[Rfam]
A member of the RNA family "Glycine riboswitch aptamer" from Ideonella sp. MAG2, 90 nucleotides long.
RNA sequence: GCAAGCUUGUCAGGAGAGAGCCCCAUAUGGGGCCGCCGAAGGCGCAGAGGGCCACCUCGAACGCUCAGGCAAAAGGACUGACAAGCGGCU
Numbered sequence: 001g002c003a004a005g006c007u008u009g010u011c012a013g014g015a016g017a018g019a020g021c022c023c024c025a026u027a028u029g030g031g032g033c034c035g036c037c038g039a040a041g042g043c044g045c046a047g048a049g050g051g052c053c054a055c056c057u058c059g060a061a062c063g064c065u066c067a068g069g070c071a072a073a074a075g076g077a078c079u080g081a082c083a084a085g086c087g088g089c090u
Stems, first nucleotide, its partner, number of pairs: 006085008020033004035070003038066002042064003049057001
Background:
The pairing is the family consensus, mapped onto this sequence. Rfam describes the family as follows. This family represents the bacterial glycine riboswitch.